Rfam assigns this 136-nucleotide RNA from Xenopus laevis to the family "Small nucleolar RNA U109". Pairs were carried over by alignment from the consensus structure, which was predicted with WAR. On this family, see Gu et al., Nucleic Acids Res 2005: "A novel experimental approach for systematic identification of box H/ACA snoRNAs from eukaryotes". The family has 26 seed sequences and 1,405 matches in Rfam 15.1. By type it is an H/ACA-box small nucleolar RNA. It scores 85 bits against the family's covariance model.
[Rfam]
RNA sequence: AAGCAUGGUGGAUAAUGCUAUUGCUCCUUCUGCAGCGGGGCAACAGUAUGUCCGAACAUGCUAGAGAAACUAAGGAGUUAUCAGGGCUGCCAGUUGUACAGUACAAGCUGAGUGGUAGUAUAUAACUCCUACACUA
Numbered sequence: 001a002a003g004c005a006u007g008g009u010g011g012a013u014a015a016u017g018c019u020a021u022u023g024c025u026c027c028u029u030c031u032g033c034a035g036c037g038g039g040g041c042a043a044c045a046g047u048a049u050g051u052c053c054g055a056a057c058a059u060g061c062u063a064g065a066g067a068a069a070c071u072a073a074g075g076a077g078u079u080a081u082c083a084g085g086g087c088u089g090c091c092a093g094u095u096g097u098a099c100a101g102u103a104c105a106a107g108c109u110g111a112g113u114g115g116u117a118g119u120a121u122a123u124a125a126c127u128c129c130u131a132c133a134c135u136a
Stems, first nucleotide, its partner, number of pairs: 003061005021043007074129004086116002090112001091110005
Dot-bracket structure: ..(((((.............(((((((.........))))))).............)))))............((((........((..((((((..........))))).)..)).........)))).......